[Rfam]
RNA sequence: AUCUUCACAAAAGCGCCAUGCACCGCAGGGAACUGCACCCUGUGCGUUAACGAGGUGGGAGGAAUAUCGAAUCUUCGGCGGAUACCUCCCCGGCCGCGGAUGACCGGCCGACAUGCUCUCCACAAAAUCCGGGGGCGACUCCGGGACAAAGGGAAAGCGCGCAUCCAU
Number, nucleotide and partner (000 for none) at each position: 001a000002u000003c000004u000005u000006c000007a000008c000009a000010a000011a000012a000013g000014c000015g000016c000017c000018a000019u000020g000021c000022a047023c046024c044025g043026c042027a041028g000029g039030g000031a000032a000033c000034u000035g000036c000037a000038c000039c029040c000041u027042g026043u025044g024045c000046g023047u022048u000049a000050a000051c000052g000053a000054g000055g000056u000057g000058g090059g089060a087061g086062g085063a000064a000065u000066a000067u078068c077069g076070a075071a000072u000073c000074u000075u070076c069077g068078g067079c000080g000081g000082a000083u000084a000085c062086c061087u060088c000089c059090c058091c110092g109093g108094c107095c106096g105097c000098g000099g000100a000101u000102g000103a000104c000105c096106g095107g094108c093109c092110g091111a000112c000113a000114u000115g158116c157117u156118c000119u154120c153121c152122a000123c000124a000125a000126a000127a000128u000129c144130c143131g142132g141133g140134g139135g000136c000137g000138a000139c134140u133141c132142c131143g130144g129145g000146a000147c000148a000149a000150a000151g000152g121153g120154a119155a000156a117157g116158c115159g000160c000161g000162c000163a000164u000165c000166c000167a000168u000
About this RNA:
Rfam assigns this 168-nucleotide RNA sequence from Zongyangia hominis to the family "glmS glucosamine-6-phosphate activated ribozyme aptamer". By type it is a riboswitch. The family's consensus secondary structure is taken from published work. Rfam describes the family as follows. This entry contains a glucosamine-6-phosphate activated ribozyme that is found in the mRNA for GlmS. GlmS is an enzyme that uses fructose-6-phosphate and glutamine to generate glucosamine-6-phosphate. Lineage of the source: Bacteria > Bacillota > Eubacteriales > Oscillospiraceae > Zongyangia. A search with the family's covariance model found it, with a score of 83 bits.